[Rfam]
RNA sequence: ACAGAUAGGAAACUAAACGAACGAAGUUCGCGUAUAGACAUGUUUCCGAUAAAAUGCCGCUGACCGGAGGGAGGAGGCACUACAUAUU
Numbered sequence: 001a002c003a004g005a006u007a008g009g010a011a012a013c014u015a016a017a018c019g020a021a022c023g024a025a026g027u028u029c030g031c032g033u034a035u036a037g038a039c040a041u042g043u044u045u046c047c048g049a050u051a052a053a054a055u056g057c058c059g060c061u062g063a064c065c066g067g068a069g070g071g072a073g074g075a076g077g078c079a080c081u082a083c084a085u086a087u088u
Stems, first nucleotide, its partner, number of pairs: 008047006018030004056078003060074002064070002